[Rfam]
RNA sequence: GUUGGGUAUGGAGACAUUUAUCCACAAACCCUGUUGGGCAAGAUCGUAGGGGGACUCUGCUGUAUAGCUGGAGUGCUGGUCAUUGCUCUCCCCAUCCCCAUCAUCGUCAACAAC
Number, nucleotide and partner (000 for none) at each position: 001g114002u113003u000004g111005g000006g000007u000008a107009u106010g105011g104012a000013g102014a101015c000016a000017u000018u000019u000020a095021u094022c000023c000024a000025c000026a000027a000028a000029c000030c000031c000032u000033g000034u000035u000036g000037g077038g076039c075040a074041a000042g000043a000044u000045c000046g000047u000048a000049g063050g000051g061052g000053g000054a000055c000056u000057c000058u000059g000060c000061u051062g000063u049064a000065u000066a000067g000068c000069u000070g000071g000072a000073g000074u040075g039076c038077u037078g000079g000080u000081c000082a000083u000084u000085g000086c000087u000088c000089u000090c000091c000092c000093c000094a021095u020096c000097c000098c000099c000100a000101u014102c013103a000104u011105c010106g009107u008108c000109a000110a000111c004112a000113a002114c001
A member of the RNA family "Potassium channel RNA editing signal" from Oryzias latipes, 114 nucleotides long. Pairs were carried over by alignment from the consensus structure, which is taken from published work. From the family's description: This family represents a group of sequences related to the human potassium channel Kv1.1 hairpin element which directs the efficient modification of an adenosine to inosine by an adenosine deaminase acting on RNA (ADAR). A search with the family's covariance model found it, with a score of 83 bits. Lineage of the source: Eukaryota > Euteleostomi > Euteleosteomorpha > Neoteleostei > Oryzias. By type it is a cis-regulatory element.